[Rfam]
Shown here is a 58-nucleotide RNA from Lusitaniella coriacea, a member of the family "Nitrogen stress-induced RNA 1". On this family, see Ionescu et al., J Mol Biol 2010: "Heterocyst-specific transcription of NsiR1, a non-coding RNA encoded in a tandem array of direct repeats in cyanobacteria".
RNA sequence: UGGUAGAUGCACCCUGGUUCAUCCUCUCCGGCUCAAUGAGAUCGGGGGGAUUUUUUUU
Numbered sequence: 001u002g003g004u005a006g007a008u009g010c011a012c013c014c015u016g017g018u019u020c021a022u023c024c025u026c027u028c029c030g031g032c033u034c035a036a037u038g039a040g041a042u043c044g045g046g047g048g049g050a051u052u053u054u055u056u057u058u
Stems, first nucleotide, its partner, number of pairs: 002013003025050005032045002035042001